[Rfam]
RNA sequence: GCUUGGCUUAGUUAGGGGGCAUAAACUAAUUUGGAACCAAAUAUGGUCCUCGACCAAGGCUUUUUCUGUAGGACUCUUUGUUUCACCAUCAAUUGUUUCCCAAGCAGCUUUGGACAUUU
Numbered sequence: 001g002c003u004u005g006g007c008u009u010a011g012u013u014a015g016g017g018g019g020c021a022u023a024a025a026c027u028a029a030u031u032u033g034g035a036a037c038c039a040a041a042u043a044u045g046g047u048c049c050u051c052g053a054c055c056a057a058g059g060c061u062u063u064u065u066c067u068g069u070a071g072g073a074c075u076c077u078u079u080g081u082u083u084c085a086c087c088a089u090c091a092a093u094u095g096u097u098u099c100c101c102a103a104g105c106a107g108c109u110u111u112g113g114a115c116a117u118u119u
Stems, first nucleotide, its partner, number of pairs: 004021002007018003034049001036047003054113007064104002067102002071100002073096002077092001
Shown here is a 119-nucleotide RNA from Camellia sinensis, a member of the family "Small nucleolar RNA U19". Pairs were carried over by alignment from the consensus structure, which was predicted with WAR. Rfam classes the family as an H/ACA-box small nucleolar RNA.